RNA sequence: UUGCCAGCGACGGGAGAAGUCGGCCACGCGCCGGUGCCGAAGGAGCAACCGCCCCGGUAAACUCUCAGGCCAAAGGACCGCCGCCUUGAU
Numbered sequence: 001u002u003g004c005c006a007g008c009g010a011c012g013g014g015a016g017a018a019g020u021c022g023g024c025c026a027c028g029c030g031c032c033g034g035u036g037c038c039g040a041a042g043g044a045g046c047a048a049c050c051g052c053c054c055c056g057g058u059a060a061a062c063u064c065u066c067a068g069g070c071c072a073a074a075g076g077a078c079c080g081c082c083g084c085c086u087u088g089a090u
Stems, first nucleotide, its partner, number of pairs: 007084003011080003020034004036070003039066002043064003049057002
RNA: Glycine riboswitch aptamer